[Rfam]
RNA sequence: CAGUGCCUUUAGGAGCCGUAACCUAAGGGCGGUAGCAUG
Numbered sequence: 001c002a003g004u005g006c007c008u009u010u011a012g013g014a015g016c017c018g019u020a021a022c023c024u025a026a027g028g029g030c031g032g033u034a035g036c037a038u039g
Stems, first nucleotide, its partner, number of pairs: 009026005
RNA: JUMPstart RNA
Organism: Budvicia aquatica